[Rfam]
RNA sequence: ACUGGCACAAUGAUGACUUAAAUUAUUUUUGCCGUUUACCCAGCUGAUGGUUUCUUUGAAGAAAUAAUUUAUGACUGAGUUGCCAGU
Numbered sequence: 001a002c003u004g005g006c007a008c009a010a011u012g013a014u015g016a017c018u019u020a021a022a023u024u025a026u027u028u029u030u031g032c033c034g035u036u037u038a039c040c041c042a043g044c045u046g047a048u049g050g051u052u053u054c055u056u057u058g059a060a061g062a063a064a065u066a067a068u069u070u071a072u073g074a075c076u077g078a079g080u081u082g083c084c085a086g087u
Base pairs, nucleotide, nucleotide: 001087002086003085004084005083006082007081

This 87-nucleotide RNA sequence from Pipistrellus kuhlii belongs to the Rfam family "Small nucleolar RNA SNORD87". By type it is a C/D-box small nucleolar RNA. The base pairs follow the family's consensus structure.